Shown here is a 261-nucleotide sequence from Lachnospiraceae bacterium RM5, a member of the family "Bacterial large signal recognition particle RNA". Taxonomically the source falls in Lachnospiraceae (Bacteria, Bacillota, Clostridia, Lachnospirales). It is annotated as a non-coding RNA gene. It scores 171 bits against the family's covariance model.
RNA sequence: CCGUGCAGCCGGGGAGAUGGCGGUGCCCUGUACUUGCAAUCCGCCUUAGCAAGGGUGAUAUCUUACCUCGGGUAUUGACUGUAGGGCUGCCCUUUAUAAGUGGCGUUGACGCCUGGGUCUUAAGCAAUAGAGCCUUAUGAACCGUGUCAGGUUAGGAAUAAAGCAGCACUAAAUAAGAUACUCUGUGUGACUUGAGGGUGCCUGGGCUGAGCAGGCUGUAAAGGUAACGCUUAUGGAAUGUAUUCAAAGUAAGAUGCACGG
Numbered sequence: 001c002c003g004u005g006c007a008g009c010c011g012g013g014g015a016g017a018u019g020g021c022g023g024u025g026c027c028c029u030g031u032a033c034u035u036g037c038a039a040u041c042c043g044c045c046u047u048a049g050c051a052a053g054g055g056u057g058a059u060a061u062c063u064u065a066c067c068u069c070g071g072g073u074a075u076u077g078a079c080u081g082u083a084g085g086g087c088u089g090c091c092c093u094u095u096a097u098a099a100g101u102g103g104c105g106u107u108g109a110c111g112c113c114u115g116g117g118u119c120u121u122a123a124g125c126a127a128u129a130g131a132g133c134c135u136u137a138u139g140a141a142c143c144g145u146g147u148c149a150g151g152u153u154a155g156g157a158a159u160a161a162a163g164c165a166g167c168a169c170u171a172a173a174u175a176a177g178a179u180a181c182u183c184u185g186u187g188u189g190a191c192u193u194g195a196g197g198g199u200g201c202c203u204g205g206g207c208u209g210a211g212c213a214g215g216c217u218g219u220a221a222a223g224g225u226a227a228c229g230c231u232u233a234u235g236g237a238a239u240g241u242a243u244u245c246a247a248a249g250u251a252a253g254a255u256g257c258a259c260g261g
Stems, first nucleotide, its partner, number of pairs: 001261007008056003011029004016024001018022001033053005061254006070245005079236007088226002092223006100216002103212002111207008119196006125187002128185005134177005144169004152161003